[Rfam]
RNA sequence: UUUCGGAUCUCCGUAGUUUUGACCAUUUUAUCCAACCUAAUAAUGUGAUAAAUGCAUCUUAACUGCGGUGAUCUGGAU
Numbered sequence: 001u002u003u004c005g006g007a008u009c010u011c012c013g014u015a016g017u018u019u020u021g022a023c024c025a026u027u028u029u030a031u032c033c034a035a036c037c038u039a040a041u042a043a044u045g046u047g048a049u050a051a052a053u054g055c056a057u058c059u060u061a062a063c064u065g066c067g068g069u070g071a072u073c074u075g076g077a078u
Base pairs, nucleotide, nucleotide: 003076004075005074006073007072008071009070011068012067013066014065015064016063017062018061021058022057027052028051029050030049031048032047033045034044

The record is a 78-nucleotide RNA from Caenorhabditis briggsae, which matches "mir-232 microRNA precursor family" in Rfam. Rfam 15.1 lists 11 matches to the family in 8 species. On this family, see de Wit et al., Genome Res 2009: "Repertoire and evolution of miRNA genes in four divergent nematode species". The base pairs follow the family's consensus structure, which was predicted with RNAalifold. Rfam links the family to the GO terms miRNA-mediated post-transcriptional gene silencing and RISC complex. Lineage of the source: Eukaryota > Opisthokonta > Nematoda > Rhabditidae > Caenorhabditis.